Source information: The family of this 75-nucleotide RNA from Alligator mississippiensis is "Mammalian CPEB3 ribozyme". From the family's description: The mammalian CPEB3 ribozyme is a self cleaving RNA located in the second intron of the CPEB3 gene which belongs to a family of genes regulating messenger RNA polyadenylation. NCBI's taxonomy places the organism under Eukaryota, Metazoa, Chordata, Sauropsida, Alligator. A search with the family's covariance model found it, with a score of 39 bits.
RNA sequence: UUGCAAGUUCAAGGGCAUAGCAGAAGUGCUCAUGGAGUAACCCUGUCAGAUUCCAGCAGAUCUGCAAAUUCUGCU
Numbered sequence: 001u002u003g004c005a006a007g008u009u010c011a012a013g014g015g016c017a018u019a020g021c022a023g024a025a026g027u028g029c030u031c032a033u034g035g036a037g038u039a040a041c042c043c044u045g046u047c048a049g050a051u052u053c054c055a056g057c058a059g060a061u062c063u064g065c066a067a068a069u070u071c072u073g074c075u
Stems, first nucleotide, its partner, number of pairs: 013043003019075007026038002047064006